[Rfam]
RNA: mir-971 microRNA precursor family
RNA sequence: AGUCCGGCUCACUCUAAGUUUGAACACCAAGCUACAUUAUACGUUUGGUGUUCUACCUUACAGUGAGCGGGCUG
Numbered sequence: 001a002g003u004c005c006g007g008c009u010c011a012c013u014c015u016a017a018g019u020u021u022g023a024a025c026a027c028c029a030a031g032c033u034a035c036a037u038u039a040u041a042c043g044u045u046u047g048g049u050g051u052u053c054u055a056c057c058u059u060a061c062a063g064u065g066a067g068c069g070g071g072c073u074g
Stems, first nucleotide, its partner, number of pairs: 007068007015060003025050008